Rfam assigns this 552-nucleotide part of an RNA from Thermoplasmatales archaeon SCGC AB-539-N05 to the family "Archaeal large subunit ribosomal RNA". Rfam 15.1 lists 2,955 matches to the family in 1,139 species.

RNA sequence: AAGUUAAGCUAUUUGGUGGAUUGCUCGGCUCGAGUGCUGAUGAAGGUCGUGCCAAGCCGCGAUAUUACUCUGGGUAGGCGCAAGGAGCCUAUGAUCCGGAGAUUACCGAAUGGGACUUCCUGCCGCUUUGGCGGCAUUCACAUUAGUGAAUAGGAACCUGCCGAAUUGAAACAUCUUAGUAGGCAGAGGAAAAGAAAUCAAUUGAGAUUGGGUUAUUAAAGGCGAUCGAACGCCCAAAAGAGCAAAACGAAUCUCAUGGCGAAGAGUCAUGAGAGAUGUGUAGUUUUGGACUCAUUUACUCCCUAGUUGGCUAACUUGAGGUUCCCUGGAAUGGGGCGCCAUAGAGGGUGAUAGCCCCGUAAAGGUAAACCAACGGGAGAUUUUUGAGUAUCCUGAGUAGCGUGCGUUGGAUAUCGCGCGUGAAUUUGGGAGGCACAAACUUCCAACUCUAAAUACAUCUCGAGACCGAUAGUGUAAUAGUAGCGUGAGUGAACGUUGCAAAGUACCCUUAGCGGGAGGUGCAAAGAGCAUGAAACUAAAUAGUUACAGACG
Numbered sequence: 001a002a003g004u005u006a007a008g009c010u011a012u013u014u015g016g017u018g019g020a021u022u023g024c025u026c027g028g029c030u031c032g033a034g035u036g037c038u039g040a041u042g043a044a045g046g047u048c049g050u051g052c053c054a055a056g057c058c059g060c061g062a063u064a065u066u067a068c069u070c071u072g073g074g075u076a077g078g079c080g081c082a083a084g085g086a087g088c089c090u091a092u093g094a095u096c097c098g099g100a101g102a103u104u105a106c107c108g109a110a111u112g113g114g115a116c117u118u119c120c121u122g123c124c125g126c127u128u129u130g131g132c133g134g135c136a137u138u139c140a141c142a143u144u145a146g147u148g149a150a151u152a153g154g155a156a157c158c159u160g161c162c163g164a165a166u167u168g169a170a171a172c173a174u175c176u177u178a179g180u181a182g183g184c185a186g187a188g189g190a191a192a193a194g195a196a197a198u199c200a201a202u203u204g205a206g207a208u209u210g211g212g213u214u215a216u217u218a219a220a221g222g223c224g225a226u227c228g229a230a231c232g233c234c235c236a237a238a239a240g241a242g243c244a245a246a247a248c249g250a251a252u253c254u255c256a257u258g259g260c261g262a263a264g265a266g267u268c269a270u271g272a273g274a275g276a277u278g279u280g281u282a283g284u285u286u287u288g289g290a291c292u293c294a295u296u297u298a299c300u301c302c303c304u305a306g307u308u309g310g311c312u313a314a315c316u317u318g319a320g321g322u323u324c325c326c327u328g329g330a331a332u333g334g335g336g337c338g339c340c341a342u343a344g345a346g347g348g349u350g351a352u353a354g355c356c357c358c359g360u361a362a363a364g365g366u367a368a369a370c371c372a373a374c375g376g377g378a379g380a381u382u383u384u385u386g387a388g389u390a391u392c393c394u395g396a397g398u399a400g401c402g403u404g405c406g407u408u409g410g411a412u413a414u415c416g417c418g419c420g421u422g423a424a425u426u427u428g429g430g431a432g433g434c435a436c437a438a439a440c441u442u443c444c445a446a447c448u449c450u451a452a453a454u455a456c457a458u459c460u461c462g463a464g465a466c467c468g469a470u471a472g473u474g475u476a477a478u479a480g481u482a483g484c485g486u487g488a489g490u491g492a493a494c495g496u497u498g499c500a501a502a503g504u505a506c507c508c509u510u511a512g513c514g515g516g517a518g519g520u521g522c523a524a525a526g527a528g529c530a531u532g533a534a535a536c537u538a539a540a541u542a543g544u545u546a547c548a549g550a551c552g
Stems, first nucleotide, its partner, number of pairs: 007545010022530001023496002027467002029464006035457002045107003048061003068101006077089003112121003137150005157188001158186005168175002198205002209236005220226001239450004247281003257269004291388004299379004315364003321337001323336004340344001346358003400421007428444005483490002